[Rfam]
RNA sequence: AGUAUUACAGUUUCUUUUUGUGACCGACACUAACGGGUAGUUUCUUAGAUAUAAAAACUAAUUAUUGAUUAUCUACUCGUUUUUGCGAUCACAAUCACCGAAAUUGUAGUGA
Numbered sequence: 001a002g003u004a005u006u007a008c009a010g011u012u013u014c015u016u017u018u019u020g021u022g023a024c025c026g027a028c029a030c031u032a033a034c035g036g037g038u039a040g041u042u043u044c045u046u047a048g049a050u051a052u053a054a055a056a057a058c059u060a061a062u063u064a065u066u067g068a069u070u071a072u073c074u075a076c077u078c079g080u081u082u083u084u085g086c087g088a089u090c091a092c093a094a095u096c097a098c099c100g101a102a103a104u105u106g107u108a109g110u111g112a
Stems, first nucleotide, its partner, number of pairs: 003111008013101002018094006025087002028085002032081008